[Rfam]
RNA sequence: AUAAAAUUCGGACUGUCUGUGUACCGAGCAAUUACAACCGCACGGUAGAAGAUCUUCUCGUUGUCGU
Numbered sequence: 001a002u003a004a005a006a007u008u009c010g011g012a013c014u015g016u017c018u019g020u021g022u023a024c025c026g027a028g029c030a031a032u033u034a035c036a037a038c039c040g041c042a043c044g045g046u047a048g049a050a051g052a053u054c055u056u057c058u059c060g061u062u063g064u065c066g067u
Stems, first nucleotide, its partner, number of pairs: 004064001006062001010058003015053003020049001022047005028041002